[Rfam]
RNA sequence: CUUGAUGGCGUCAGUAACAAGGAUUCAUCCUGUUUUAUUGGUCAACACUGACAGGAAGUCACUGUUACUGGGGUCAAAGGU
Dot-bracket structure: ..........(((((((((..((((...((((((...(........)..)))))).))))..)))))))))..........
RNA: mir-459 microRNA precursor family